RNA sequence: GGAGGCAGAGGAAGCACGGCCACCCAGCCAACACACAGGGAGCUUGCUCCCGACAUGCUGCGGGGAAAGUCCCCGUGCCUUCGGGCAGAAAGUGUCAUUGGGAGACCAAAGGCCAGCAUCUGCAGCUUGCAGGGAAGCUUUGUGCCAAGCUGAUAGCUCAGGAGCUGGCCACUUGCAGCAGCACAGUCAUGCCGUGAGCACCCGAUGGAGGGUGCCAACCGAACGGGGCUCAUUCUCCCCAUGCCUC
Numbered sequence: 001g002g003a004g005g006c007a008g009a010g011g012a013a014g015c016a017c018g019g020c021c022a023c024c025c026a027g028c029c030a031a032c033a034c035a036c037a038g039g040g041a042g043c044u045u046g047c048u049c050c051c052g053a054c055a056u057g058c059u060g061c062g063g064g065g066a067a068a069g070u071c072c073c074c075g076u077g078c079c080u081u082c083g084g085g086c087a088g089a090a091a092g093u094g095u096c097a098u099u100g101g102g103a104g105a106c107c108a109a110a111g112g113c114c115a116g117c118a119u120c121u122g123c124a125g126c127u128u129g130c131a132g133g134g135a136a137g138c139u140u141u142g143u144g145c146c147a148a149g150c151u152g153a154u155a156g157c158u159c160a161g162g163a164g165c166u167g168g169c170c171a172c173u174u175g176c177a178g179c180a181g182c183a184c185a186g187u188c189a190u191g192c193c194g195u196g197a198g199c200a201c202c203c204g205a206u207g208g209a210g211g212g213u214g215c216c217a218a219c220c221g222a223a224c225g226g227g228g229c230u231c232a233u234u235c236u237c238c239c240c241a242u243g244c245c246u247c
Base pairs, nucleotide, nucleotide: 002247003246004245005244006243008240010238011237012236015196016195017194018193019192020191023063024062025060026059027058028057038051039050040049041048042047068230069229071228072227073226074225084096085095086094087093098109099108100107101106111169113167116165117164119162120161121160124158125157126156127152129150130149137145138144198215199214200213201212202211203210